[Rfam]
RNA sequence: GAGUUCAUGUCAGUGGCAAGCCUAAGGGGUCAACCCCCGGAGGCGAAGGGAAACCGAGAGUCCGCAACUCAGGCAACUGAGUGAGGGACCAGAUCUGUCAGGGUCUGAAGUCACUGGCAUGAGGCUAGAAACCGGGCGAUCUAGACCAGAGCAGGUCGAAGGCGGGGGAAACCCCGCUGGAGGACCGAAUAGGGGUUCUGACGUGCAAUUCGUUCCCCUGACUCUGGUCUAGGGGCAAAAGGCCAAUCUAGCCCGGUGAUAGCUAGUU
Numbered sequence: 001g002a003g004u005u006c007a008u009g010u011c012a013g014u015g016g017c018a019a020g021c022c023u024a025a026g027g028g029g030u031c032a033a034c035c036c037c038c039g040g041a042g043g044c045g046a047a048g049g050g051a052a053a054c055c056g057a058g059a060g061u062c063c064g065c066a067a068c069u070c071a072g073g074c075a076a077c078u079g080a081g082u083g084a085g086g087g088a089c090c091a092g093a094u095c096u097g098u099c100a101g102g103g104u105c106u107g108a109a110g111u112c113a114c115u116g117g118c119a120u121g122a123g124g125c126u127a128g129a130a131a132c133c134g135g136g137c138g139a140u141c142u143a144g145a146c147c148a149g150a151g152c153a154g155g156u157c158g159a160a161g162g163c164g165g166g167g168g169a170a171a172c173c174c175c176g177c178u179g180g181a182g183g184a185c186c187g188a189a190u191a192g193g194g195g196u197u198c199u200g201a202c203g204u205g206c207a208a209u210u211c212g213u214u215c216c217c218c219u220g221a222c223u224c225u226g227g228u229c230u231a232g233g234g235g236c237a238a239a240a241g242g243c244c245a246a247u248c249u250a251g252c253c254c255g256g257u258g259a260u261a262g263c264u265a266g267u268u
Base pairs, nucleotide, nucleotide: 005122006121007120008119009118010117011116012115013114014113015112016111017110020044021043022042023041026038027037028036029035048055049054060089061088062087063086067082068081069080070079071078072077092105093104094103095102125266126265128263132256133255134254135253136252137251141232142231143230144229145228146227147226148225149224150223151222152220154186155185156184157183161178162177163176164175165174166173167172192217193216194215195214198212200211201210234244235243236242

Description: This 268-nucleotide part of an RNA from Candidatus Acidianus copahuensis belongs to the Rfam family "Archaeal large subunit ribosomal RNA". The family is grouped with related families in Rfam's "LSU clan". Lineage of the source: Archaea > Thermoproteati > Thermoprotei > Sulfolobaceae > Acidianus. It scores 2834 bits against the family's covariance model.